[Rfam]
RNA sequence: AUGCUGGUUUGACAACGAGAGAGAGCACGCCGGUCUGCAAUCAUGGGAGCGGCCAUGGCUGUGUGUACCAGCGUGCUCUUUCUCGUUGUCACCUGGCU
Number, nucleotide and partner (000 for none) at each position: 001a000002u000003g000004c000005u000006g000007g000008u000009u000010u091011g090012a089013c088014a087015a000016c085017g084018a000019g000020a081021g080022a000023g078024a000025g076026c075027a074028c073029g072030c071031c000032g069033g068034u067035c000036u000037g000038c000039a000040a000041u000042c000043a000044u000045g000046g000047g000048a000049g000050c000051g000052g000053c000054c000055a000056u000057g000058g000059c000060u000061g000062u000063g000064u000065g000066u000067a034068c033069c032070a000071g030072c029073g028074u027075g026076c025077u000078c023079u000080u021081u020082c000083u000084c017085g016086u000087u014088g013089u012090c011091a010092c000093c000094u000095g000096g000097c000098u000

Shown here is a 98-nucleotide sequence from Ensete ventricosum, a member of the family "MIR535 microRNA precursor family". A reference for the family is Zeng et al. (2010), "Conservation and divergence of microRNAs and their functions in Euphorbiaceous plants", Nucleic Acids Res. Its family is annotated with miRNA-mediated post-transcriptional gene silencing and RISC complex in the Gene Ontology.